[Rfam]
RNA sequence: AAGGUAGCUUAUGCUACUGCUAUGGAUUGGUUCAUAGCCGUGUGCUAUGCAUUU
Numbered sequence: 001a002a003g004g005u006a007g008c009u010u011a012u013g014c015u016a017c018u019g020c021u022a023u024g025g026a027u028u029g030g031u032u033c034a035u036a037g038c039c040g041u042g043u044g045c046u047a048u049g050c051a052u053u054u
Stems, first nucleotide, its partner, number of pairs: 001054003007050002010047002013045002015042003019038002022035005
RNA: Editing element of GABA-3 exon 9